[Rfam]
RNA sequence: AUAUAAGCAAAUUUUGACUUUUAAGUUCAUUCAAUUAAUGAUGUAUAUGGUCUACAUUAUAGACCACAUACAUCAUUAAUUGAAUGAACCUACAAGUCAAAAUUUGCUUAUAA
Numbered sequence: 001a002u003a004u005a006a007g008c009a010a011a012u013u014u015u016g017a018c019u020u021u022u023a024a025g026u027u028c029a030u031u032c033a034a035u036u037a038a039u040g041a042u043g044u045a046u047a048u049g050g051u052c053u054a055c056a057u058u059a060u061a062g063a064c065c066a067c068a069u070a071c072a073u074c075a076u077u078a079a080u081u082g083a084a085u086g087a088a089c090c091u092a093c094a095a096g097u098c099a100a101a102a103u104u105u106g107c108u109u110a111u112a113a
Stems, first nucleotide, its partner, number of pairs: 002112011014100007022092002026088018048066004
MIR2593 microRNA precursor family: a 113-nucleotide RNA from Medicago truncatula.
NCBI's taxonomy places the organism under Eukaryota, Streptophytina, Euphyllophyta, Hologalegina, Medicago.
The base pairs follow the family's consensus structure, which was predicted with RNAalifold.
Rfam links the family to the GO terms miRNA-mediated post-transcriptional gene silencing and RISC complex.